[Rfam]
RNA sequence: UCUAGAACUCGAAAUAUGGACUGAACACUGAACAGUGUUUAGGCUGAAGGACAAAUUCUGACUUCUCCGUUGUUGCUAAGAUUUGGACUUCCAAACAGCAGAAUUAAGUCUUUCACUCUGCAGGAAUGUUUUAGGCCUAUAUCUUAGAUUUCUAGC
Numbered sequence: 001u002c003u004a005g006a007a008c009u010c011g012a013a014a015u016a017u018g019g020a021c022u023g024a025a026c027a028c029u030g031a032a033c034a035g036u037g038u039u040u041a042g043g044c045u046g047a048a049g050g051a052c053a054a055a056u057u058c059u060g061a062c063u064u065c066u067c068c069g070u071u072g073u074u075g076c077u078a079a080g081a082u083u084u085g086g087a088c089u090u091c092c093a094a095a096c097a098g099c100a101g102a103a104u105u106a107a108g109u110c111u112u113u114c115a116c117u118c119u120g121c122a123g124g125a126a127u128g129u130u131u132u133a134g135g136c137c138u139a140u141a142u143c144u145u146a147g148a149u150u151u152c153u154a155g156c
Base pairs, nucleotide, nucleotide: 002155003154004153005152006151007150008147009146011145012144014142015141016140017139018138019137021134022133023132024131025130027129028128036122037121041119042118043117045115046114048112049111050110051109052108054105055104056103057102058101059100060099062098063097069091072088073087074086
RNA: MIR2912 microRNA precursor family